[Rfam]
RNA sequence: AUGAUGGUAGCGGGAGAGAUUACCGACAGCUCGACAGGUAGCGCCGAAGGAGUAAGCCGAUGUAUCGGUGAAUCUCUCAGGCAAAAGGACCUUUACCGGACG
Numbered sequence: 001a002u003g004a005u006g007g008u009a010g011c012g013g014g015a016g017a018g019a020u021u022a023c024c025g026a027c028a029g030c031u032c033g034a035c036a037g038g039u040a041g042c043g044c045c046g047a048a049g050g051a052g053u054a055a056g057c058c059g060a061u062g063u064a065u066c067g068g069u070g071a072a073u074c075u076c077u078c079a080g081g082c083a084a085a086a087g088g089a090c091c092u093u094u095a096c097c098g099g100a101c102g
Stems, first nucleotide, its partner, number of pairs: 006097005012091002020041004043082003046078002050076003056069002